[Rfam]
RNA sequence: AUUGUACUUCAUUGUACAUCGCUCUGGAUAAGAGCGUCUGCUAAAUGCCUUGUA
Numbered sequence: 001a002u003u004g005u006a007c008u009u010c011a012u013u014g015u016a017c018a019u020c021g022c023u024c025u026g027g028a029u030a031a032g033a034g035c036g037u038c039u040g041c042u043a044a045a046u047g048c049c050u051u052g053u054a
Stems, first nucleotide, its partner, number of pairs: 013043001014041003020036006
The record is a 54-nucleotide RNA sequence from Conger conger, which matches "UnaL2 LINE 3' element" in Rfam. NCBI's taxonomy places the organism under Eukaryota, Eumetazoa, Euteleostomi, Anguilliformes, Conger. The base pairs follow the family's consensus structure, which is taken from published work. Its family is annotated with transposition, RNA-mediated in the Gene Ontology. The eel long interspersed element (LINE) UnaL2 and its partner short interspersed element (SINE) share a conserved 3' tail containing a stem-loop that is critical for their retrotransposition. By type it is a cis-regulatory element. Rfam 15.1 lists 493,311 matches to the family in 99 species. The match comes from Rfam's covariance-model search (60 bits).